The family of this 99-nucleotide RNA sequence from Hucho hucho is "mir-214 microRNA precursor family". On this family, see Shao et al., Gene 2008: "Identification of novel chicken microRNAs and analysis of their genomic organization". Lineage of the source: Eukaryota > Craniata > Teleostei > Protacanthopterygii > Hucho.
RNA sequence: GAGAGAGUGUUGUGGUGUGUCUGCCUGUCUACACUUGCUGUGCAGACCUUCCUAUCCUGUACAGCAGGCACAGACAGGCAGACAGAUGGCAGCUCCGCU
Numbered sequence: 001g002a003g004a005g006a007g008u009g010u011u012g013u014g015g016u017g018u019g020u021c022u023g024c025c026u027g028u029c030u031a032c033a034c035u036u037g038c039u040g041u042g043c044a045g046a047c048c049u050u051c052c053u054a055u056c057c058u059g060u061a062c063a064g065c066a067g068g069c070a071c072a073g074a075c076a077g078g079c080a081g082a083c084a085g086a087u088g089g090c091a092g093c094u095c096c097g098c099u
Base pairs, nucleotide, nucleotide: 018084019083022080023079024078025077026076027075028074029073030072034068036066037065038064039063040062041061043059044058045057
Dot-bracket structure: .................((..(((((((((...(.((((((.(((...........))).)))))).)...)))))))))..))...............